[Rfam]
Nucleotides: 141
Stems, first nucleotide, its partner, number of pairs: 020052002024048001026047003034042002085117003089112002092109001094107003130141004
Number, partner (000 for none) and nucleotide at each position: 001000a002000a003000c004000u005000u006000u007000g008000u009000g010000c011000a012000g013000u014000g015000g016000c017000a018000g019000u020052a021051u022000c023000a024048u025000a026047g027046c028045c029000a030000a031000u032000a033000a034042g035041g036000u037000u038000u039000a040000u041035c042034c043000g044000a045028g046027g047026c048024a049000c050000a051021a052020u053000u054000a055000u056000u057000g058000c059000u060000a061000a062000u063000u064000g065000a066000a067000a068000a069000u070000g071000u072000u073000u074000c075000c076000c077000a078000a079000u080000a081000c082000c083000c084000u085117g086116c087115c088000a089112u090111g091000a092109c093000a094107a095106c096105u097000u098000g099000a100000a101000g102000u103000a104000u105096a106095g107094u108000c109092g110000g111090c112089a113000g114000u115087g116086g117085c118000a119000a120000u121000u122000u123000u124000u125000g126000a127000u128000a129000u130141u131140c132139u133138c134000u135000g136000c137000a138133g139132a140131g141130a
U4 spliceosomal RNA: a 141-nucleotide RNA from Saimiri boliviensis. On this family, see Zwieb, Nucleic Acids Res 1997: "The uRNA database". By type it is a spliceosomal small nuclear RNA.